[Rfam]
RNA sequence: CGUUACGGUUUGGACUCAAGAUGCUUUGGGCCGUAGCGAGUACGACCCGCGCACAAGGGGAUCUGACCAGCGCGGGAGGGAUACCCACGUAGCUCCAGUUAGACCGCGCCUAGGACACUGCCGCUAGCCUAGGAGGAGCGCCCCGAAAGUGCUACGUGUGGCCGACCCUGUCAGGGCCGAGGGACCGCCAAGUCAUAACCUCGAAGACGGCCAGCGCAAC
Numbered sequence: 001c002g003u004u005a006c007g008g009u010u011u012g013g014a015c016u017c018a019a020g021a022u023g024c025u026u027u028g029g030g031c032c033g034u035a036g037c038g039a040g041u042a043c044g045a046c047c048c049g050c051g052c053a054c055a056a057g058g059g060g061a062u063c064u065g066a067c068c069a070g071c072g073c074g075g076g077a078g079g080g081a082u083a084c085c086c087a088c089g090u091a092g093c094u095c096c097a098g099u100u101a102g103a104c105c106g107c108g109c110c111u112a113g114g115a116c117a118c119u120g121c122c123g124c125u126a127g128c129c130u131a132g133g134a135g136g137a138g139c140g141c142c143c144c145g146a147a148a149g150u151g152c153u154a155c156g157u158g159u160g161g162c163c164g165a166c167c168c169u170g171u172c173a174g175g176g177c178c179g180a181g182g183g184a185c186c187g188c189c190a191a192g193u194c195a196u197a198a199c200c201u202c203g204a205a206g207a208c209g210g211c212c213a214g215c216g217c218a219a220c
Stems, first nucleotide, its partner, number of pairs: 002037009046076006064173004086158008095149001105140003109133006159213006179202004
Record summary
PAGEV RNA: a 220-nucleotide RNA from Pseudomonas luteola. Rfam's curators put it in the seed alignment. By type it is a small RNA.